This 134-nucleotide sequence from Cyanobacterium aponinum belongs to the Rfam family "c-di-AMP riboswitch aptamer (ydaO/yuaA leader)". The match comes from Rfam's covariance-model search (59 bits).
RNA sequence: ACUAAUCAUUUUUCGAUUAUUAAAUAGGAAGCGGGGGAACCAAUUUAGGGGCUUAUUUUUGGAGUGUUUCCAGAAAAGAACAUCUCUCAGUUCUCGUCCGUCAGCUAACCUCGUAGGCAUUGAGAGGAGACUAA
Numbered sequence: 001a002c003u004a005a006u007c008a009u010u011u012u013u014c015g016a017u018u019a020u021u022a023a024a025u026a027g028g029a030a031g032c033g034g035g036g037g038a039a040c041c042a043a044u045u046u047a048g049g050g051g052c053u054u055a056u057u058u059u060u061g062g063a064g065u066g067u068u069u070c071c072a073g074a075a076a077a078g079a080a081c082a083u084c085u086c087u088c089a090g091u092u093c094u095c096g097u098c099c100g101u102c103a104g105c106u107a108a109c110c111u112c113g114u115a116g117g118c119a120u121u122g123a124g125a126g127g128a129g130a131c132u133a134a
Stems, first nucleotide, its partner, number of pairs: 011119001013117002018030001020028001031114006041048001049099003057075007078093004